Rfam assigns this 85-nucleotide RNA sequence from Cnephaeus nilssonii to the family "mir-9243 microRNA precursor family". The family's consensus secondary structure was predicted with RNAalifold. Rfam links the family to the GO terms miRNA-mediated post-transcriptional gene silencing and RISC complex.
[Rfam]
RNA sequence: CCAUGCAUGAAUUCAUGCACUGGGCCUCUAGUAUGUGUGUGUAUAUAUAUACUAGAGGCCUGGUGCAUGAAAUUCAUGCAUGGGG
Number, nucleotide and partner (000 for none) at each position: 001c083002c082003a000004u080005g079006c078007a077008u076009g075010a074011a073012u071013u070014c069015a000016u067017g066018c065019a064020c063021u062022g061023g060024g059025c058026c057027u056028c055029u054030a053031g052032u051033a050034u049035g000036u000037g000038u000039g000040u000041g000042u000043a000044u000045a000046u000047a000048u000049a034050u033051a032052c031053u030054a029055g028056a027057g026058g025059c024060c023061u022062g021063g020064u019065g018066c017067a016068u000069g014070a013071a012072a000073u011074u010075c009076a008077u007078g006079c005080a004081u000082g002083g001084g000085g000